[Rfam]
RNA: Burkholderia sRNA 11
RNA sequence: UCCCUCUCGCCAAGACCGGUCUUGUGCGGGAAUUGAUGGCCGCUAUGAUAGCGAGCCUUCAGGGCUGAUAGCGCUAUCCGUGUUGCCCACGGUAUGUCGCAUGUGUUGACGCGAACUGGCCGACGGUGAGCGUCGAGACCGCCCGAAUGCGCCGCGUGCGCUCGAAAAAAGGCCUUCAUCUGACGAUGAGGGCCUUUUACU
Numbered sequence: 001u002c003c004c005u006c007u008c009g010c011c012a013a014g015a016c017c018g019g020u021c022u023u024g025u026g027c028g029g030g031a032a033u034u035g036a037u038g039g040c041c042g043c044u045a046u047g048a049u050a051g052c053g054a055g056c057c058u059u060c061a062g063g064g065c066u067g068a069u070a071g072c073g074c075u076a077u078c079c080g081u082g083u084u085g086c087c088c089a090c091g092g093u094a095u096g097u098c099g100c101a102u103g104u105g106u107u108g109a110c111g112c113g114a115a116c117u118g119g120c121c122g123a124c125g126g127u128g129a130g131c132g133u134c135g136a137g138a139c140c141g142c143c144c145g146a147a148u149g150c151g152c153c154g155c156g157u158g159c160g161c162u163c164g165a166a167a168a169a170a171g172g173c174c175u176u177c178a179u180c181u182g183a184c185g186a187u188g189a190g191g192g193c194c195u196u197u198u199a200c201u
Stems, first nucleotide, its partner, number of pairs: 003035001005031006013022003038057003041053004062144004071100003074096001078092005105139002109133004116126003149161004167198014